This 62-nucleotide RNA from Burkholderia multivorans belongs to the Rfam family "Betaproteobacteria toxic small RNA". Rfam describes the family as follows. Overexpression in amino aid rich medium attenuates growth, suggesting role in repressing amino acid intake and metabolism. The source organism's lineage runs through Bacteria, Pseudomonadati, Burkholderiaceae, Burkholderia cepacia complex and Burkholderia multivorans.
[Rfam]
RNA sequence: UGUCUCCUCCACCCUCCUCCUAAGGUGGAUUAAGCCCGAACCAGCCGUUCGGGCUUUUUUUC
Numbered sequence: 001u002g003u004c005u006c007c008u009c010c011a012c013c014c015u016c017c018u019c020c021u022a023a024g025g026u027g028g029a030u031u032a033a034g035c036c037c038g039a040a041c042c043a044g045c046c047g048u049u050c051g052g053g054c055u056u057u058u059u060u061u062c
Base pairs, nucleotide, nucleotide: 008029009028010027011026012025013024015022033055034054035053036052037051038050039049040048